[Rfam]
RNA sequence: CUUCAAACGCGUAGUGGCGGUACCGUAGCAAAUGAAGUUUAUUUGAGGUGCGGUUAUUGCUAGUUGAAAACUAUUCCCCAUACUCCGCACCGGUGUCGUGAAAUAUCGUUGUCAGAUGCAAUUUUUCUAGACCAUCUCUGG
Numbered sequence: 001c002u003u004c005a006a007a008c009g010c011g012u013a014g015u016g017g018c019g020g021u022a023c024c025g026u027a028g029c030a031a032a033u034g035a036a037g038u039u040u041a042u043u044u045g046a047g048g049u050g051c052g053g054u055u056a057u058u059g060c061u062a063g064u065u066g067a068a069a070a071c072u073a074u075u076c077c078c079c080a081u082a083c084u085c086c087g088c089a090c091c092g093g094u095g096u097c098g099u100g101a102a103a104u105a106u107c108g109u110u111g112u113c114a115g116a117u118g119c120a121a122u123u124u125u126u127c128u129a130g131a132c133c134a135u136c137u138c139u140g141g
Stems, first nucleotide, its partner, number of pairs: 022054005028049002036044002087119003090115001092113004097108002132141003
The family of this 141-nucleotide RNA sequence from Schistosoma haematobium is "U4 spliceosomal RNA". The organism belongs to Schistosoma, within Eukaryota. The match comes from Rfam's covariance-model search (74 bits).